[Rfam]
The family of this 86-nucleotide RNA from Marinobacterium lacunae is "sRNA-Xcc1". The family's consensus secondary structure was predicted with RNAalifold. The family's RNA type in Rfam is small RNA. For this family Rfam cites "sRNA-Xcc1, an integron-encoded transposon- and plasmid-transferred trans-acting sRNA, is under the positive control of the key virulence regulators HrpG and HrpX of Xanthomonas campestris pathovar campestris" (Chen et al., RNA Biol, 2011).
RNA sequence: GUCGGGAGGGCGACGAAUACAACACCCCUUGUGGGGAAUAAGUCCGCGGUCCGUUUGUGCCGUUUCGAACCUCCCGACACCCAUAC
Numbered sequence: 001g002u003c004g005g006g007a008g009g010g011c012g013a014c015g016a017a018u019a020c021a022a023c024a025c026c027c028c029u030u031g032u033g034g035g036g037a038a039u040a041a042g043u044c045c046g047c048g049g050u051c052c053g054u055u056u057g058u059g060c061c062g063u064u065u066c067g068a069a070c071c072u073c074c075c076g077a078c079a080c081c082c083a084u085a086c
Base pairs, nucleotide, nucleotide: 001078002077003076004075005074006073007072008071009070012044013043014042016039025035026034027033046063047062048061049060050059